[Rfam]
RNA sequence: UAUUUUCUUCGUUAGGUGAGGCUACUUCCUGGAUAUAGGCUACUGCCCGGAAAUGUCGAGAGACACCAACGGGUAAACAGGUAUUACCGGCUUAAGGUUUUACCUAAUGUAGCUGAGGGUUUCCUCUAAGCCAGGUUGAGCUAAAGCUUUGACGAGUGGAGAAGGUU
Numbered sequence: 001u002a003u004u005u006u007c008u009u010c011g012u013u014a015g016g017u018g019a020g021g022c023u024a025c026u027u028c029c030u031g032g033a034u035a036u037a038g039g040c041u042a043c044u045g046c047c048c049g050g051a052a053a054u055g056u057c058g059a060g061a062g063a064c065a066c067c068a069a070c071g072g073g074u075a076a077a078c079a080g081g082u083a084u085u086a087c088c089g090g091c092u093u094a095a096g097g098u099u100u101u102a103c104c105u106a107a108u109g110u111a112g113c114u115g116a117g118g119g120u121u122u123c124c125u126c127u128a129a130g131c132c133a134g135g136u137u138g139a140g141c142u143a144a145a146g147c148u149u150u151g152a153c154g155a156g157u158g159g160a161g162a163a164g165g166u167u
Stems, first nucleotide, its partner, number of pairs: 005163006011153002013095001015148003020142003025138001028135005039113005045074005054065004080104004086098003115126003
RNA: M-box riboswitch aptamer (ykoK leader)